[Rfam]
RNA sequence: GCGGGGCUGCCGCCCAAUCGCCGUCCGCGGCGAGCCGGGGACCCACCGUAACGUUGGGGUGAAUCUACCGUCCCGCACUCCGGGUCGGUGGUAGGGGUCGUUCCGUCCCGAACCCGUCAGCUAACUCGGUCGGCGGCCGACGGAAGGAACA
Numbered sequence: 001g002c003g004g005g006g007c008u009g010c011c012g013c014c015c016a017a018u019c020g021c022c023g024u025c026c027g028c029g030g031c032g033a034g035c036c037g038g039g040g041a042c043c044c045a046c047c048g049u050a051a052c053g054u055u056g057g058g059g060u061g062a063a064u065c066u067a068c069c070g071u072c073c074c075g076c077a078c079u080c081c082g083g084g085u086c087g088g089u090g091g092u093a094g095g096g097g098u099c100g101u102u103c104c105g106u107c108c109c110g111a112a113c114c115c116g117u118c119a120g121c122u123a124a125c126u127c128g129g130u131c132g133g134c135g136g137c138c139g140a141c142g143g144a145a146g147g148a149a150c151a
Base pairs, nucleotide, nucleotide: 011135012134013133014132018033019032020031021030022029034130035129036128037127038126039125044056045055057115058114059113065091066090067089068088069087070086094109095108096107097106
RNA: c-di-AMP riboswitch aptamer (ydaO/yuaA leader)
Organism: Dactylosporangium sucinum